Rfam assigns this 55-nucleotide sequence from Zarconia navalis to the family "Nitrogen stress-induced RNA 1". The base pairs follow the family's consensus structure. It is annotated as a small RNA. The family has 17 seed sequences and 962 matches in Rfam 15.1. The source organism's lineage runs through Bacteria, Cyanobacteriota, Oscillatoriophycideae, Zarconia and Zarconia navalis.

RNA sequence: AGGUAGAUGCACCCUUUUGAAGCACCCCCGGCCUAAAAAACCGGGGGUUUUUUCG
Numbered sequence: 001a002g003g004u005a006g007a008u009g010c011a012c013c014c015u016u017u018u019g020a021a022g023c024a025c026c027c028c029c030g031g032c033c034u035a036a037a038a039a040a041c042c043g044g045g046g047g048u049u050u051u052u053u054c055g
Stems, first nucleotide, its partner, number of pairs: 002013003025047007